[Rfam]
Rfam assigns this 102-nucleotide RNA from Sparus aurata to the family "Vault RNA". NCBI's taxonomy places the organism under Eukaryota, Vertebrata, Teleostei, Sparidae, Sparus. It scores 57 bits against the family's covariance model.
RNA sequence: GUGGAGGUUUAGCUCAGUGGUUACUUCUUAACUUCAUCCAGUUUCUCUAACCUCACGGGUUCGCUCCCCGAGGAUCUACCACGGGCGCUGUCCUCUGCUUUU
Dot-bracket structure: .((((((....((((.((((.....((((.........................................))))....)))))))).....)))))).....

The family's RNA type in Rfam is non-coding RNA gene.